[Rfam]
RNA: mir-1892 microRNA precursor family
RNA sequence: UGGAUAUAUUUCUACUCUUGACCAAAGUUUUGUAAGAAACAAUACAGAAUUUGGGGACGGGAGGGAGGAUACUUUGAGAA
Numbered sequence: 001u002g003g004a005u006a007u008a009u010u011u012c013u014a015c016u017c018u019u020g021a022c023c024a025a026a027g028u029u030u031u032g033u034a035a036g037a038a039a040c041a042a043u044a045c046a047g048a049a050u051u052u053g054g055g056g057a058c059g060g061g062a063g064g065g066a067g068g069a070u071a072c073u074u075u076g077a078g079a080a
Stems, first nucleotide, its partner, number of pairs: 007071005013065001015063006022056002025052010